[Rfam]
RNA sequence: ACACGAGAAAGGAGGUGAUCCGAGGAAUGAAUUCCUAUAGGACGCGUGAGGUGGUUGCCGGUUAGGCGACCCCAGCGACGGGGUGGGGUCACCCCGAUCUCUGAAGCCGGGCUGCCGGCCAAUUCAACGCAGCCACCCGACCCGCAGGUGAACCGGGCACGUCCCCCGGGCGGUCCUCUCGGACCACACCUGCGGGUCGCUUCGG
Numbered sequence: 001a002c003a004c005g006a007g008a009a010a011g012g013a014g015g016u017g018a019u020c021c022g023a024g025g026a027a028u029g030a031a032u033u034c035c036u037a038u039a040g041g042a043c044g045c046g047u048g049a050g051g052u053g054g055u056u057g058c059c060g061g062u063u064a065g066g067c068g069a070c071c072c073c074a075g076c077g078a079c080g081g082g083g084u085g086g087g088g089u090c091a092c093c094c095c096g097a098u099c100u101c102u103g104a105a106g107c108c109g110g111g112c113u114g115c116c117g118g119c120c121a122a123u124u125c126a127a128c129g130c131a132g133c134c135a136c137c138c139g140a141c142c143c144g145c146a147g148g149u150g151a152a153c154c155g156g157g158c159a160c161g162u163c164c165c166c167c168g169g170g171c172g173g174u175c176c177u178c179u180c181g182g183a184c185c186a187c188a189c190c191u192g193c194g195g196g197u198c199g200c201u202u203c204g205g
Stems, first nucleotide, its partner, number of pairs: 014059006060120004065116003070111003075107002138199013153169005